[Rfam]
RNA sequence: UGUAUUAAUGAUAAAAAAAAAAAAUCAAUCAUGUUGUAAAAGGAAAAGAAAAAGUGGUACCCAUAUAUUACAAUUUUGAAGAUGAGGAUCCAAAGCACCCAUCAAUCCAAGAACCUUAUGAAGACUAAAAAUAAUUUUUUAUUAAAAGUCGGGUUGUUUGGGAAUGCAGCCCCAAUCGGGCGAUAAAUUCCGUCCAAGGCUAAAUACGGGCGAGAGACCGAUAGCAAACAAGUACCGCGAGGGAAAGAUGAAAAAGACUUUGAAAAGAGAGUCAAAGAGUGCUUGAAAUUGUCGGGAGGGAAGCGGAUGGGGGCCGGCGAUGCGCCCUGGUCGGAUGUGGAACGGUGAGAGCCGGUCCGCCGAUCGACUCGGGGAGCGGACCGAUGCGGAUCGAGGGGGCGGCCCAAGCCCGGGCUGUCGAUAUGCCCGCGGAGACGUCGUCCCCCCGAUCGUGGAACCCAGCACGCGCCGUCCCGGCGUGCUUCGGCAUCUGCGUGCUCCGGGCAUCGGCCCGUGGGCUCCCCAUCCGGCCUGUCUUGAAACACGG
Numbered sequence: 001u002g003u004a005u006u007a008a009u010g011a012u013a014a015a016a017a018a019a020a021a022a023a024a025u026c027a028a029u030c031a032u033g034u035u036g037u038a039a040a041a042g043g044a045a046a047a048g049a050a051a052a053a054g055u056g057g058u059a060c061c062c063a064u065a066u067a068u069u070a071c072a073a074u075u076u077u078g079a080a081g082a083u084g085a086g087g088a089u090c091c092a093a094a095g096c097a098c099c100c101a102u103c104a105a106u107c108c109a110a111g112a113a114c115c116u117u118a119u120g121a122a123g124a125c126u127a128a129a130a131a132u133a134a135u136u137u138u139u140u141a142u143u144a145a146a147a148g149u150c151g152g153g154u155u156g157u158u159u160g161g162g163a164a165u166g167c168a169g170c171c172c173c174a175a176u177c178g179g180g181c182g183a184u185a186a187a188u189u190c191c192g193u194c195c196a197a198g199g200c201u202a203a204a205u206a207c208g209g210g211c212g213a214g215a216g217a218c219c220g221a222u223a224g225c226a227a228a229c230a231a232g233u234a235c236c237g238c239g240a241g242g243g244a245a246a247g248a249u250g251a252a253a254a255a256g257a258c259u260u261u262g263a264a265a266a267g268a269g270a271g272u273c274a275a276a277g278a279g280u281g282c283u284u285g286a287a288a289u290u291g292u293c294g295g296g297a298g299g300g301a302a303g304c305g306g307a308u309g310g311g312g313g314c315c316g317g318c319g320a321u322g323c324g325c326c327c328u329g330g331u332c333g334g335a336u337g338u339g340g341a342a343c344g345g346u347g348a349g350a351g352c353c354g355g356u357c358c359g360c361c362g363a364u365c366g367a368c369u370c371g372g373g374g375a376g377c378g379g380a381c382c383g384a385u386g387c388g389g390a391u392c393g394a395g396g397g398g399g400c401g402g403c404c405c406a407a408g409c410c411c412g413g414g415c416u417g418u419c420g421a422u423a424u425g426c427c428c429g430c431g432g433a434g435a436c437g438u439c440g441u442c443c444c445c446c447c448g449a450u451c452g453u454g455g456a457a458c459c460c461a462g463c464a465c466g467c468g469c470c471g472u473c474c475c476g477g478c479g480u481g482c483u484u485c486g487g488c489a490u491c492u493g494c495g496u497g498c499u500c501c502g503g504g505c506a507u508c509g510g511c512c513c514g515u516g517g518g519c520u521c522c523c524c525a526u527c528c529g530g531c532c533u534g535u536c537u538u539g540a541a542a543c544a545c546g547g
Stems, first nucleotide, its partner, number of pairs: 016142001018139004023135001025133001035123001037120002040117004151172007178195005235242002258269004304529010314518002323376001325374005381510007532547004

The family of this 547-nucleotide part of an RNA from Trema andersonii is "Eukaryotic large subunit ribosomal RNA".
The match comes from Rfam's covariance-model search (3002 bits).
The base pairs follow the family's consensus structure, which is taken from published work.